[Rfam]
RNA: U5 spliceosomal RNA
Organism: Lactuca saligna
RNA sequence: AGCCAUAUGGUGAGCACAAAGCGAACUAUUCUUUCGCCUUUUACUAAAGAAUACCGUGUAUUCGUAUUUAUAGUGGCAUUUGCCUAUUUUUGGAGAGUCCCUUUUGCUUGAAGGGCU
Numbered sequence: 001a002g003c004c005a006u007a008u009g010g011u012g013a014g015c016a017c018a019a020a021g022c023g024a025a026c027u028a029u030u031c032u033u034u035c036g037c038c039u040u041u042u043a044c045u046a047a048a049g050a051a052u053a054c055c056g057u058g059u060a061u062u063c064g065u066a067u068u069u070a071u072a073g074u075g076g077c078a079u080u081u082g083c084c085u086a087u088u089u090u091u092g093g094a095g096a097g098u099c100c101c102u103u104u105u106g107c108u109u110g111a112a113g114g115g116c117u
Stems, first nucleotide, its partner, number of pairs: 003075001008066001010065005016059003027053008094117001099115005
Dot-bracket structure: ..(....(.(((((.(((........((((((((...........))))))))...))).))))))........)..................(....(((((.......))))).)